[Rfam]
RNA sequence: AUGACGUGUAGCAUGCCCGUUGUGAAAUUACUCUGAUGAAUAUUUGUUAUUUAAUUGCUUUUGGGUAACAGGGUGUUAUUGGUUG
Numbered sequence: 001a002u003g004a005c006g007u008g009u010a011g012c013a014u015g016c017c018c019g020u021u022g023u024g025a026a027a028u029u030a031c032u033c034u035g036a037u038g039a040a041u042a043u044u045u046g047u048u049a050u051u052u053a054a055u056u057g058c059u060u061u062u063g064g065g066u067a068a069c070a071g072g073g074u075g076u077u078a079u080u081g082g083u084u085g
Stems, first nucleotide, its partner, number of pairs: 002085004008079007016072002019069003
Rfam assigns this 85-nucleotide RNA sequence from Medicago truncatula to the family "MIR2617 microRNA precursor family". It scores 66 bits against the family's covariance model. Pairs were carried over by alignment from the consensus structure, which was predicted with RNAalifold. Its family is annotated with miRNA-mediated post-transcriptional gene silencing and RISC complex in the Gene Ontology.